[Rfam]
RNA: Small nucleolar RNA Z105
Organism: Spinacia oleracea
RNA sequence: GCAUAGUGAUGAUGAACUUAUAUAUAACCUACAAGUUCGUGAAGGAUAAAAACCUCCUACUCAUACUGA
Numbered sequence: 001g002c003a004u005a006g007u008g009a010u011g012a013u014g015a016a017c018u019u020a021u022a023u024a025u026a027a028c029c030u031a032c033a034a035g036u037u038c039g040u041g042a043a044g045g046a047u048a049a050a051a052a053c054c055u056c057c058u059a060c061u062c063a064u065a066c067u068g069a
Stems, first nucleotide, its partner, number of pairs: 006064004028045002032041001